[Rfam]
RNA: Small nucleolar RNA SNORD34
Organism: Apostichopus japonicus
RNA sequence: GCUCAUCAAUGAUGUUUUCUAUACCUACAUUGGUUGAAUAUUUGUGAUAUAAACCCAACUAUGAACUGAGAUGAGC
Numbered sequence: 001g002c003u004c005a006u007c008a009a010u011g012a013u014g015u016u017u018u019c020u021a022u023a024c025c026u027a028c029a030u031u032g033g034u035u036g037a038a039u040a041u042u043u044g045u046g047a048u049a050u051a052a053a054c055c056c057a058a059c060u061a062u063g064a065a066c067u068g069a070g071a072u073g074a075g076c
Base pairs, nucleotide, nucleotide: 001076002075004073005072006071007070